[Rfam]
Annotation:
The record is a 361-nucleotide RNA from Saccharata proteae, which matches "Nuclear RNase P" in Rfam. It scores 46 bits against the family's covariance model. By type it is a ribozyme. Rfam links the family to the GO terms ribonuclease P complex, tRNA processing and ribonuclease P activity. Clan: RNaseP clan. For this family Rfam cites "Eukaryotic Ribonuclease P: A Plurality of Ribonucleoprotein Enzymes" (Xiao et al., Annu Rev Biochem, 2002).
RNA sequence: GUCCUCGCCAACGCUGCGUUUCUUUGCUCACAAACAGACUCUGAGCCUCGCGCCCAGCUGUCCAUCCACGCAAAUGAGAAAUUCGGAGUAAUCUUCACCCUACCGCUACUCUCGCCGCCUUCGGGCGGUGGGCUCUGGCAGCUGCCUGUGAGGGCCUGGCGUGAACUCACGCUUGCAUUGGGCAUCAGAAAUUCCAGGCCCAGUGCGGUCGCGGCCUCUUCGGGGGCCGCGGUCCGUUGCUGGUUCCUAUGGGAGCUCGUGCGAAGAUUGUGUGCCUGCGGGCGACACUUCAGUGCAAUACGCGGCGUGCCAGUUCUGAGAAGGACUGGUAUCAUUCGAUUCCGAUUACUCUGGCGAGGAC
Numbered sequence: 001g002u003c004c005u006c007g008c009c010a011a012c013g014c015u016g017c018g019u020u021u022c023u024u025u026g027c028u029c030a031c032a033a034a035c036a037g038a039c040u041c042u043g044a045g046c047c048u049c050g051c052g053c054c055c056a057g058c059u060g061u062c063c064a065u066c067c068a069c070g071c072a073a074a075u076g077a078g079a080a081a082u083u084c085g086g087a088g089u090a091a092u093c094u095u096c097a098c099c100c101u102a103c104c105g106c107u108a109c110u111c112u113c114g115c116c117g118c119c120u121u122c123g124g125g126c127g128g129u130g131g132g133c134u135c136u137g138g139c140a141g142c143u144g145c146c147u148g149u150g151a152g153g154g155c156c157u158g159g160c161g162u163g164a165a166c167u168c169a170c171g172c173u174u175g176c177a178u179u180g181g182g183c184a185u186c187a188g189a190a191a192u193u194c195c196a197g198g199c200c201c202a203g204u205g206c207g208g209u210c211g212c213g214g215c216c217u218c219u220u221c222g223g224g225g226g227c228c229g230c231g232g233u234c235c236g237u238u239g240c241u242g243g244u245u246c247c248u249a250u251g252g253g254a255g256c257u258c259g260u261g262c263g264a265a266g267a268u269u270g271u272g273u274g275c276c277u278g279c280g281g282g283c284g285a286c287a288c289u290u291c292a293g294u295g296c297a298a299u300a301c302g303c304g305g306c307g308u309g310c311c312a313g314u315u316c317u318g319a320g321a322a323g324g325a326c327u328g329g330u331a332u333c334a335u336u337c338g339a340u341u342c343c344g345a346u347u348a349c350u351c352u353g354g355c356g357a358g359g360a361c
Stems, first nucleotide, its partner, number of pairs: 001361004008354003013306007023074004037062003084344005093266004144155004158173005175262004180258003196248003307332010
Dot-bracket structure: ((((...(((..(((((((...((((..........(((....................)))........)))).........[[[[[....((((...............................................((((....))))..(((((......))))).((((.(((.............(((...............................................))).......))))))))))).................................)))))))((((((((((......)))))))))).......]]]]].......)))...))))